tRNA: a 72-nucleotide RNA sequence from Pseudothermotoga thermarum. From the family's description: Transfer RNA (tRNA) molecules are approximately 80 nucleotides in length. Rfam classes the family as a transfer RNA. Lineage of the source: Bacteria > Thermotogati > Thermotogaceae > Pseudothermotoga > Pseudothermotoga thermarum.
RNA sequence: GCCCCUAUAGUUCAAUGGAUAGAACGGCGGAUUCCUAAUCCGCAGAUGGAGGUUCGAUUCCUCCUAGGGGCA
Numbered sequence: 001g002c003c004c005c006u007a008u009a010g011u012u013c014a015a016u017g018g019a020u021a022g023a024a025c026g027g028c029g030g031a032u033u034c035c036u037a038a039u040c041c042g043c044a045g046a047u048g049g050a051g052g053u054u055c056g057a058u059u060c061c062u063c064c065u066a067g068g069g070g071c072a
Base pairs, nucleotide, nucleotide: 001071002070003069004068005067006066007065010025011024012023013022027043028042029041030040031039048064049063050062051061052060